Annotation:
The family of this 95-nucleotide RNA from Martelella mediterranea is "TPP riboswitch aptamer (THI element)". Rfam's curators write: Vitamin B(1) in its active form thiamin pyrophosphate (TPP) is an essential coenzyme that is synthesised by coupling of pyrimidine and thiazole moieties in bacteria. The previously detected thiamin-regulatory element, thi box was extended, resulting in a new, highly conserved RNA secondary structure, the THI element, which is widely distributed in eubacteria and also occurs in some archaea.

RNA sequence: CAAGAGCGACAGGGGCGUCCGCGACAGCGGGCUGAGAUGAACCCUUGGAACCUGAUCCGGAUCAUACCGGCGGAGGGAGUCACUCGGGUUCGCGA
Dot-bracket structure: .....(.(((((((.((((((......)))))......)..)))).....(((...((((......))))...)))..))).)............
The base pairs follow the family's consensus structure, which is taken from published work.